[Rfam]
RNA sequence: GUGAACUGGUAAUCCGAUAGGUGGAAUGAUGGGGUAACGCCCUGAAACGUCUAUCCUUGACGGACUUGCGUCAGCUGUAAUGGUUGGGGUGAGAAGCUCCGUGACAACGACCGAGAGUAGUCGUAGGAAUCUGCCAAAAGAUUCUCGAAAACGCCCCAAAAGGUGGGGUGCCCUACCUAUAGGUCUAGGAUCUUUAAA
Numbered sequence: 001g002u003g004a005a006c007u008g009g010u011a012a013u014c015c016g017a018u019a020g021g022u023g024g025a026a027u028g029a030u031g032g033g034g035u036a037a038c039g040c041c042c043u044g045a046a047a048c049g050u051c052u053a054u055c056c057u058u059g060a061c062g063g064a065c066u067u068g069c070g071u072c073a074g075c076u077g078u079a080a081u082g083g084u085u086g087g088g089g090u091g092a093g094a095a096g097c098u099c100c101g102u103g104a105c106a107a108c109g110a111c112c113g114a115g116a117g118u119a120g121u122c123g124u125a126g127g128a129a130u131c132u133g134c135c136a137a138a139a140g141a142u143u144c145u146c147g148a149a150a151a152c153g154c155c156c157c158a159a160a161a162g163g164u165g166g167g168g169u170g171c172c173c174u175a176c177c178u179a180u181a182g183g184u185c186u187a188g189g190a191u192c193u194u195u196a197a198a
Stems, first nucleotide, its partner, number of pairs: 018053006031043004054190004061101004065093005071087007109185004117176004122147002129143001152170007